[Rfam]
RNA sequence: CCUUGGGGGCCUUUGCUACGGAUCGUCCGGCACGUACCUGCCGGCGAAGGAAAGGACGU
Numbered sequence: 001c002c003u004u005g006g007g008g009g010c011c012u013u014u015g016c017u018a019c020g021g022a023u024c025g026u027c028c029g030g031c032a033c034g035u036a037c038c039u040g041c042c043g044g045c046g047a048a049g050g051a052a053a054g055g056a057c058g059u
Stems, first nucleotide, its partner, number of pairs: 010050006027044006
RNA: msiK RNA